The record is a 92-nucleotide RNA sequence from Limnohabitans sp. 63ED37-2, which matches "SAH (S-adenosyl-L-homocysteine) riboswitch aptamer" in Rfam.
Pairs were carried over by alignment from the consensus structure, which is taken from published work.
The source organism's lineage runs through Bacteria, Pseudomonadati, Pseudomonadota, Burkholderiales and Limnohabitans.
On this family, see Wang et al., Mol Cell 2008: "Riboswitches that sense S-adenosylhomocysteine and activate genes involved in coenzyme recycling".

[Rfam]
RNA sequence: UUUUCCGAGGAGCGUUGCAGCGCCCACCAGCCAACUGGCUGGCAGCAGGCGUGAGGCUCGGAACCUUCAAACAGCAACGACGCUCAUCCACU
Numbered sequence: 001u002u003u004u005c006c007g008a009g010g011a012g013c014g015u016u017g018c019a020g021c022g023c024c025c026a027c028c029a030g031c032c033a034a035c036u037g038g039c040u041g042g043c044a045g046c047a048g049g050c051g052u053g054a055g056g057c058u059c060g061g062a063a064c065c066u067u068c069a070a071a072c073a074g075c076a077a078c079g080a081c082g083c084u085c086a087u088c089c090a091c092u
Base pairs, nucleotide, nucleotide: 003063004062005061006060007059008058021051022050023049024048